[Rfam]
RNA sequence: GUGCAGAGUGGUGUGACGUGACUUUGCUUGAUGCCUAACGGUUUAGAAGCUGCGACCUAAAGCUGCUGCCUAUUUGCAAGAUUGGCUUUAUAUUAGGGCCGAUUCUACUAUGCACCGACCAUCUGGGU
Numbered sequence: 001g002u003g004c005a006g007a008g009u010g011g012u013g014u015g016a017c018g019u020g021a022c023u024u025u026g027c028u029u030g031a032u033g034c035c036u037a038a039c040g041g042u043u044u045a046g047a048a049g050c051u052g053c054g055a056c057c058u059a060a061a062g063c064u065g066c067u068g069c070c071u072a073u074u075u076g077c078a079a080g081a082u083u084g085g086c087u088u089u090a091u092a093u094u095a096g097g098g099c100c101g102a103u104u105c106u107a108c109u110a111u112g113c114a115c116c117g118a119c120c121a122u123c124u125g126g127g128u
Stems, first nucleotide, its partner, number of pairs: 003069004008064001017054004022049004033042003082102007
RNA: purD RNA motif